[Rfam]
RNA sequence: GGAAAUCUUCGGGGUAGGGUGACAUUUUCAAAAGUCCUAUAUCAUAUUUAAGGACGAAGAGAUGAAUUCCCAACCGGCGGUAUAGUCCGCGACCCGCGUAAAGCGGCUGAACCGGUGACGCAGAUGCGAAUUCCGGUACCGACAGUAAAGUCUGGAUGAGAGAAGAACGAU
Numbered sequence: 001g002g003a004a005a006u007c008u009u010c011g012g013g014g015u016a017g018g019g020u021g022a023c024a025u026u027u028u029c030a031a032a033a034g035u036c037c038u039a040u041a042u043c044a045u046a047u048u049u050a051a052g053g054a055c056g057a058a059g060a061g062a063u064g065a066a067u068u069c070c071c072a073a074c075c076g077g078c079g080g081u082a083u084a085g086u087c088c089g090c091g092a093c094c095c096g097c098g099u100a101a102a103g104c105g106g107c108u109g110a111a112c113c114g115g116u117g118a119c120g121c122a123g124a125u126g127c128g129a130a131u132u133c134c135g136g137u138a139c140c141g142a143c144a145g146u147a148a149a150g151u152c153u154g155g156a157u158g159a160g161a162g163a164a165g166a167a168c169g170a171u
Stems, first nucleotide, its partner, number of pairs: 006166005017071003073151002075141002077090004085139002094106002111137005143154003
RNA: FMN riboswitch aptamer (RFN element)